[Rfam]
RNA sequence: CAACCUCUGACGAUAAUCGUGUACGUUG
Numbered sequence: 001c002a003a004c005c006u007c008u009g010a011c012g013a014u015a016a017u018c019g020u021g022u023a024c025g026u027u028g
Stems, first nucleotide, its partner, number of pairs: 001028004008023001010020004